[Rfam]
RNA: mir-3910 microRNA precursor family
RNA sequence: UUUUUUUGUUGCUUGUCUUGGUUUUAUGCCUUUUAUGUGCCUUGAUAUAAAAGGCAUAAAACCAAGACAAGCAACAGAAAAA
Dot-bracket structure: .(((((((((((((((((((((((((((((((((((((......))))))))))))))))))))))))))))))))))))).